[Rfam]
RNA sequence: AUUUAAGUUUUCUAGGGUUCCGCAGUUUGUAACUGGCAGGUCCGAGAGAAAACGCAUAGUUUAUACUAUGUUCACGGAAGGAUAAAAGCCUGGGAGAU
Numbered sequence: 001a002u003u004u005a006a007g008u009u010u011u012c013u014a015g016g017g018u019u020c021c022g023c024a025g026u027u028u029g030u031a032a033c034u035g036g037c038a039g040g041u042c043c044g045a046g047a048g049a050a051a052a053c054g055c056a057u058a059g060u061u062u063a064u065a066c067u068a069u070g071u072u073c074a075c076g077g078a079a080g081g082a083u084a085a086a087a088g089c090c091u092g093g094g095a096g097a098u
Stems, first nucleotide, its partner, number of pairs: 007053006015043002020040002022037001023035005054071007073093001075096001079091003
A member of the RNA family "Guanidine-I riboswitch aptamer" from Clostridium beijerinckii, 98 nucleotides long. Pairs were carried over by alignment from the consensus structure. About the family: This family represents a conserved RNA structure found upstream of the ykkC and yxkD genes in Bacillus subtilis and related genes in other bacteria.